[Rfam]
Annotation:
Purine riboswitch aptamer: a 102-nucleotide RNA from Oceanotoga teriensis. The base pairs follow the family's consensus structure, which is taken from published work. Its family is annotated with purine nucleobase biosynthetic process in the Gene Ontology. It scores 89 bits against the family's covariance model.

RNA sequence: GUUAAUACUUUUUCGUCUUCCUGUAUAUUUCCGAAGAUAUGGUUCGGAAGUUUCUACCAGAUAACCGUAAAUUAUCUGACUAUAGGAGGGAUUUUUGUUUUU
Numbered sequence: 001g002u003u004a005a006u007a008c009u010u011u012u013u014c015g016u017c018u019u020c021c022u023g024u025a026u027a028u029u030u031c032c033g034a035a036g037a038u039a040u041g042g043u044u045c046g047g048a049a050g051u052u053u054c055u056a057c058c059a060g061a062u063a064a065c066c067g068u069a070a071a072u073u074a075u076c077u078g079a080c081u082a083u084a085g086g087a088g089g090g091a092u093u094u095u096u097g098u099u100u101u102u
Base pairs, nucleotide, nucleotide: 018088019087020086021085022084023083024082025081029049030048031047032046033045034044035043058078059077060076061075062074063073064072